The family of this 152-nucleotide sequence from Amborella trichopoda is "MIR8565 microRNA precursor family". The family's consensus secondary structure was predicted with RNAalifold. A search with the family's covariance model found it, with a score of 142 bits.
[Rfam]
RNA sequence: UCUACACCCAUGUGUGUAGGACCCCAAAAGAUCACCAUUAAAUUUGGCAUAGAUUUCUAGAAAAGUUAACAUGUGUGUGGGACUUGACUUUUCUAGAGAUCUAUGUCAAAUUUAAUGGUGAUCCUGUGGGGUCUUAUACAUAUGGGUGUGGG
Number, nucleotide and partner (000 for none) at each position: 001u000002c151003u150004a149005c148006a147007c146008c145009c144010a143011u142012g141013u140014g000015u138016g137017u136018a135019g134020g133021a132022c131023c130024c129025c128026a127027a000028a125029a000030g123031a122032u121033c000034a119035c118036c117037a116038u115039u114040a113041a112042a111043u110044u109045u108046g107047g106048c105049a104050u103051a102052g101053a100054u099055u098056u097057c096058u095059a094060g093061a092062a091063a090064a089065g088066u087067u086068a085069a078070c077071a076072u000073g000074u000075g000076u071077g070078u069079g000080g000081g000082a000083c000084u000085u068086g067087a066088c065089u064090u063091u062092u061093c060094u059095a058096g057097a056098g055099a054100u053101c052102u051103a050104u049105g048106u047107c046108a045109a044110a043111u042112u041113u040114a039115a038116u037117g036118g035119u034120g000121a032122u031123c030124c000125u028126g000127u026128g025129g024130g023131g022132u021133c020134u019135u018136a017137u016138a015139c000140a013141u012142a011143u010144g009145g008146g007147u006148g005149u004150g003151g002152g000